Rfam assigns this 352-nucleotide RNA sequence from Pseudoflavonifractor sp. An176 to the family "Bacterial RNase P class A". Rfam describes the family as follows. Ribonuclease P (RNase P) is a ubiquitous endoribonuclease, found in archaea, bacteria and eukarya as well as chloroplasts and mitochondria. By type it is a ribozyme. NCBI's taxonomy places the organism under Bacteria, Bacillati, Bacillota, Eubacteriales, Pseudoflavonifractor.

Nucleotides: 352
Base pairs, nucleotide, nucleotide: 001348002347003346004345005344007342008341009340010339011337012314013313014312015311016310017309018308020046021045022044023043024042025041026040028038051335052334053333055332056331057330058329059328060221061220062219063218068253069252073217074216075215076214077213079091080090081089082088093107094105095104096103097102108212109211113210114209115206116205117204129152130151131148132147133146134145135144136143137142160179161178162177163176164175166174181201182200183199184198185197186195188193225271226270227269228268234262235261236260237259238258239257246256247255248254278297279296280295281294282293283292284291285290
Number, partner (000 for none) and nucleotide at each position: 001348c002347a003346a004345g005344u006000a007342a008341g009340c010339u011337g012314g013313a014312c015311a016310g017309c018308c019000g020046c021045g022044u023043g024042g025041g026040c027000a028038g029000g030000u031000c032000g033000a034000a035000a036000g037000g038028c039000c040026g041025u042024c043023c044022a045021u046020g047000a048000g049000g050000a051335a052334a053333g054000u055332c056331c057330g058329g059328g060221c061220u062219c063218c064000g065000u066000a067000g068253g069252g070000c071000a072000a073217g074216g075215a076214u077213a078000a079091c080090g081089g082088g083000u084000a085000a086000c087000g088082c089081c090080c091079g092000c093107c094105g095104a096103a097102g098000g099000c100000g101000a102097c103096u104095u105094c106000a107093g108212g109211a110000a111000a112000a113210g114209u115206g116205c117204a118000a119000c120000a121000g122000a123000g124000a125000u126000a127000u128000a129152c130151c131148g132147c133146c134145u135144u136143g137142c138000u139000u140000u141000u142137g143136c144135a145134a146133g147132g148131u149000a150000a151130g152129g153000g154000u155000g156000g157000a158000a159000a160179g161178g162177c163176g164175g165000a166174g167000a168000u169000a170000a171000g172000c173000g174166c175164c176163c177162g178161c179160c180000c181201g182200a183199u184198g185197a186195c187000u188193g189000g190000g191000a192000a193188c194000u195186g196000c197185u198184c199183a200182u201181c202000g203000c204117u205116g206115u207000a208000a209114a210113c211109u212108c213077u214076a215075u216074c217073c218063g219062g220061a221060g222000c223000a224000a225271c226270a227269c228268c229000g230000u231000g232000g233000a234262a235261a236260c237259g238258c239257a240000c241000a242000c243000a244000a245000a246256g247255c248254c249000g250000g251000c252069c253068c254248g255247g256246c257239u258238g259237c260236g261235u262234u263000g264000a265000g266000g267000a268228g269227g270226u271225g272000g273000c274000u275000g276000g277000a278297g279296u280295g281294c282293a283292g284291c285290g286000g287000c288000a289000a290285c291284g292283c293282u294281g295280u296279g297278c298000c299000u300000a301000g302000a303000u304000a305000g306000a307000u308018g309017g310016c311015u312014g313013u314012c315000u316000u317000a318000a319000a320000g321000g322000a323000c324000a325000g326000a327000a328059c329058c330057c331056g332055g333053c334052u335051u336000a337011c338000a339010g340009g341008c342007u343000c344005a345004c346003u347002u348001g349000u350000a351000c352000c